[Rfam]
Nucleotides: 102
Base pairs, nucleotide, nucleotide: 003100004099005098010090011089012088013087014086015085016084017083018082019081020079021078022077026055027054029053030052031051032050033049034048035047039096040095041094042093043092059076060075061074062073063072064071
Number, partner (000 for none) and nucleotide at each position: 001000a002000a003100c004099a005098g006000a007000g008000u009000a010090g011089a012088a013087a014086a015085u016084g017083a018082a019081g020079c021078g022077u023000c024000a025000a026055g027054u028000g029053u030052c031051a032050a033049a034048a035047a036000a037000u038000g039096g040095a041094a042093u043092g044000u045000u046000g047035u048034u049033u050032u051031u052030g053029g054027a055026c056000g057000a058000a059076g060075a061074a062073c063072g064071a065000u066000g067000a068000a069000a070000g071064u072063c073062g074061u075060u076059c077022g078021c079020g080000g081019u082018u083017u084016u085015g086014u087013u088012u089011u090010c091000g092043c093042a094041u095040u096039c097000g098005c099004u100003g101000c102000a
Source information:
THF (Tetrahydrofolate) riboswitch aptamer: a 102-nucleotide RNA from Enterococcus alcedinis. The source organism's lineage runs through Bacteria, Bacillati, Bacillota, Lactobacillales and Enterococcus.